Shown here is a 191-nucleotide RNA sequence from Castor canadensis, a member of the family "U2 spliceosomal RNA". Pairs were carried over by alignment from the consensus structure, which is taken from published work.

[Rfam]
RNA sequence: AUCGCUUCUCAGCCCUUUGGCUAAGAUCAAGUGUAGUAUCUGUUCUUGUCAGUUUAGUAUCUGUUACAUCCUCUAUCUGAGGACUAUGUACCAAAUGGAUUUUUGGAAUAGGGAGAUGGAAUAGGAGCUUUCUCUGUUCACUCCAUGCAUCGACCUGGUAUUUCAAUAUUUCCAGGAAUGGUGCACCUUUC
Numbered sequence: 001a002u003c004g005c006u007u008c009u010c011a012g013c014c015c016u017u018u019g020g021c022u023a024a025g026a027u028c029a030a031g032u033g034u035a036g037u038a039u040c041u042g043u044u045c046u047u048g049u050c051a052g053u054u055u056a057g058u059a060u061c062u063g064u065u066a067c068a069u070c071c072u073c074u075a076u077c078u079g080a081g082g083a084c085u086a087u088g089u090a091c092c093a094a095a096u097g098g099a100u101u102u103u104u105g106g107a108a109u110a111g112g113g114a115g116a117u118g119g120a121a122u123a124g125g126a127g128c129u130u131u132c133u134c135u136g137u138u139c140a141c142u143c144c145a146u147g148c149a150u151c152g153a154c155c156u157g158g159u160a161u162u163u164c165a166a167u168a169u170u171u172c173c174a175g176g177a178a179u180g181g182u183g184c185a186c187c188u189u190u191c
Base pairs, nucleotide, nucleotide: 007026008025009024011022012021013020014019047066048065050063051062052061069083070082071081072080073079112144113143114142115141118138119137124135125134126133127132147184148183149182150181151180152179154176155175156174157173158172

Background: About the family: U2 is a small nuclear RNA (snRNA) component of the spliceosome (involved in pre-mRNA splicing). Complementary binding between U2 snRNA (in an area lying towards the 5' end but 3' to hairpin I) and the branchpoint sequence (BPS) of the intron results the bulging out of an unpaired adenosine, on the BPS, which initiates a nucleophilic attack at the intronic 5' splice site, thus starting the first of two transesterification reactions that mediate splicing. Rfam 15.1 lists 71,512 matches to the family in 2,642 species. The source organism's lineage runs through Eukaryota, Craniata, Vertebrata, Amniota and Castor. The family's RNA type in Rfam is spliceosomal small nuclear RNA.